[Rfam]
Nucleotides: 084
Base pairs, nucleotide, nucleotide: 001084002083003082004081005080006079007078008077009076010074011073012072014069015068016067017066018065019064020063021062023060024059025058
Number, partner (000 for none) and nucleotide at each position: 001084c002083u003082g004081a005080c006079a007078g008077a009076a010074g011073a012072g013000a014069g015068u016067g017066a018065g019064c020063a021062c022000a023060c024059a025058c026000a027000g028000g029000c030000a031000a032000u033000u034000g035000u036000a037000u038000g039000a040000g041000g042000c043000c044000a045000u046000a047000c048000c049000a050000u051000u052000g053000c054000a055000g056000a057000g058025g059024u060023g061000u062021g063020u064019g065018c066017u067016c068015a069014c070000c071000u072012c073011u074010c075000u076009u077008u078007c079006u080005g081004u082003c083002a084001g
mir-156 microRNA precursor family: an 84-nucleotide RNA sequence from Manihot esculenta. Rfam's curators write: This family represents the plant microRNA (miRNA) precursor mir-156. Lineage of the source: Eukaryota > Tracheophyta > Euphyllophyta > Mesangiospermae > Manihot. Pairs were carried over by alignment from the consensus structure, which was predicted with PFOLD. Rfam 15.1 lists 1,401 matches to the family in 221 species. The literature on the family includes a 2002 paper in Genes Dev by Reinhart et al., "MicroRNAs in plants".